[Rfam]
RNA sequence: CUCUUAUCAAGAGAGGUGGAGGGACUGUGCCCUGUGAAGCCCGGCAACCGUCAACUUAUGUUGAAAUGGUGCCAAUUCCUGCAAAGCAAAUGCUUUGAGAGAUGAGAG
Number, nucleotide and partner (000 for none) at each position: 001c108002u107003c106004u105005u104006a103007u102008c101009a000010a000011g000012a000013g042014a000015g041016g040017u039018g000019g000020a000021g032022g031023g030024a000025c000026u081027g080028u000029g078030c023031c022032c021033u000034g000035u000036g000037a000038a000039g017040c016041c015042c013043g073044g072045c071046a070047a000048c069049c068050g000051u064052c063053a062054a000055c000056u000057u000058a000059u000060g000061u000062u053063g052064a051065a000066a000067u000068g049069g048070u046071g045072c044073c043074a000075a000076u000077u100078c029079c000080u027081g026082c097083a096084a095085a094086g093087c092088a000089a000090a000091u000092g087093c086094u085095u084096u083097g082098a000099g000100a077101g008102a007103u006104g005105a004106g003107a002108g001
The record is a 108-nucleotide RNA from Bacillus thuringiensis, which matches "SAM riboswitch aptamer (S box leader)" in Rfam. The SAM riboswitch is found upstream of a number of genes which code for proteins involved in methionine or cysteine biosynthesis in Gram-positive bacteria. Rfam 15.1 lists 9,625 matches to the family in 4,158 species. Lineage of the source: Bacteria > Bacillota > Caryophanales > Bacillus thuringiensis > [Bacillus thuringiensis] serovar konkukian.